[Rfam]
RNA sequence: AUGCCAUUUGAACACAAUUACUGCAUUUAACCUUUUGAUUGGUCAAUAAAAAUAAUAAUGCAUUUUAUCUUUUAUAGAAUUGAAAUCCAAUCAGAACAUAACAUGUAACAGUCAUUAUUC
Numbered sequence: 001a002u003g004c005c006a007u008u009u010g011a012a013c014a015c016a017a018u019u020a021c022u023g024c025a026u027u028u029a030a031c032c033u034u035u036u037g038a039u040u041g042g043u044c045a046a047u048a049a050a051a052a053u054a055a056u057a058a059u060g061c062a063u064u065u066u067a068u069c070u071u072u073u074a075u076a077g078a079a080u081u082g083a084a085a086u087c088c089a090a091u092c093a094g095a096a097c098a099u100a101a102c103a104u105g106u107a108a109c110a111g112u113c114a115u116u117a118u119u120c
Stems, first nucleotide, its partner, number of pairs: 022107002025104002030099001033096004038091005
About this RNA: This 120-nucleotide sequence from Glycine max belongs to the Rfam family "MIR1520 microRNA precursor family". Its Rfam clan is "MIR1520 microRNA precursor clan".